[Rfam]
RNA sequence: CACACACGGAAGUCGGGUUUCGGCGGUCGAGUUCUGCUCGAACGACGCGAUCCACCGGUGGCGGCAUCCGGCCGCUUCUUUCCGUGGAGGCUCAACCGGUAAAGGAAACCUA
Numbered sequence: 001c002a003c004a005c006a007c008g009g010a011a012g013u014c015g016g017g018u019u020u021c022g023g024c025g026g027u028c029g030a031g032u033u034c035u036g037c038u039c040g041a042a043c044g045a046c047g048c049g050a051u052c053c054a055c056c057g058g059u060g061g062c063g064g065c066a067u068c069c070g071g072c073c074g075c076u077u078c079u080u081u082c083c084g085u086g087g088a089g090g091c092u093c094a095a096c097c098g099g100u101a102a103a104g105g106a107a108a109c110c111u112a
Stems, first nucleotide, its partner, number of pairs: 001089001003087001005086007015053005060076006
Description
rpsB sRNA: a 112-nucleotide RNA sequence from Aurantimonas marianensis. Rfam classes the family as a small RNA.